[Rfam]
RNA sequence: CCUCUUCGAUCUGCUGCGGGCAGAUGAAGUGGAUGUGCGUGUCGAUGCCGCCGGCGGUGAGGAUCAUGCCUUCGCCGGCGAUGACUUCGGUGCUGGCGCCGAGGGCGAUGGUGACGCCGGGCUGGAUGUCCGGGUUGCCGGCCUUGCCGAUGGCGGCGAUGCGACCGUGCUUCAGGCCGACGUCGGCCUUCACGAUGCCCCAGUGGUCGAGGAUCAGCGCGUUGGUGAUCACGGUGUCGACCACCUCUGCGGCCGGCAGCUGGCCCUGGCCCAUGCCGUCGCGGAUG
Numbered sequence: 001c002c003u004c005u006u007c008g009a010u011c012u013g014c015u016g017c018g019g020g021c022a023g024a025u026g027a028a029g030u031g032g033a034u035g036u037g038c039g040u041g042u043c044g045a046u047g048c049c050g051c052c053g054g055c056g057g058u059g060a061g062g063a064u065c066a067u068g069c070c071u072u073c074g075c076c077g078g079c080g081a082u083g084a085c086u087u088c089g090g091u092g093c094u095g096g097c098g099c100c101g102a103g104g105g106c107g108a109u110g111g112u113g114a115c116g117c118c119g120g121g122c123u124g125g126a127u128g129u130c131c132g133g134g135u136u137g138c139c140g141g142c143c144u145u146g147c148c149g150a151u152g153g154c155g156g157c158g159a160u161g162c163g164a165c166c167g168u169g170c171u172u173c174a175g176g177c178c179g180a181c182g183u184c185g186g187c188c189u190u191c192a193c194g195a196u197g198c199c200c201c202a203g204u205g206g207u208c209g210a211g212g213a214u215c216a217g218c219g220c221g222u223u224g225g226u227g228a229u230c231a232c233g234g235u236g237u238c239g240a241c242c243a244c245c246u247c248u249g250c251g252g253c254c255g256g257c258a259g260c261u262g263g264c265c266c267u268g269g270c271c272c273a274u275g276c277c278g279u280c281g282c283g284g285a286u287g
Base pairs, nucleotide, nucleotide: 001287003285005283007281008280009279012158013157014156015155016154017153018076019075022072023071030053031052032051034050035049037048038047039046040045057069058068059067077148078147081144083142085140090138091137092136094132095130096129097128099125100124102123103122106119107117165269166268167267172263173262174261175260186220187219189217190216200209223255224254225253230249231248234247236245

The record is a 287-nucleotide RNA sequence from Pseudomonas knackmussii, which matches "5' ureB small RNA" in Rfam. NCBI's taxonomy places the organism under Bacteria, Gammaproteobacteria, Pseudomonadaceae, Pseudomonas, Pseudomonas knackmussii. The family's consensus secondary structure was predicted with mfold.